Small nucleolar RNA SNORD34: an 85-nucleotide RNA from Musa balbisiana. The family has 14 seed sequences and 1,319 matches in Rfam 15.1. It is annotated as a C/D-box small nucleolar RNA. On this family, see Galardi et al., Mol Cell Biol 2002: "Purified box C/D snoRNPs are able to reproduce site-specific 2'-O-methylation of target RNA in vitro". Lineage of the source: Eukaryota > Magnoliopsida > Petrosaviidae > Musaceae > Musa. About the family: snoRNA U34 is found in intron 5 of the ribosomal protein L13a gene in humans.
RNA sequence: CAAGGCCUAUGAUAGUCAACUAAUAUAUUGCCUACAUUGCCUGAUUAGCCUUGUGAUUAUAAUCUGAUGUUGUUCUGAGGCCUUC
Numbered sequence: 001c002a003a004g005g006c007c008u009a010u011g012a013u014a015g016u017c018a019a020c021u022a023a024u025a026u027a028u029u030g031c032c033u034a035c036a037u038u039g040c041c042u043g044a045u046u047a048g049c050c051u052u053g054u055g056a057u058u059a060u061a062a063u064c065u066g067a068u069g070u071u072g073u074u075c076u077g078a079g080g081c082c083u084u085c
Stems, first nucleotide, its partner, number of pairs: 002084001004082004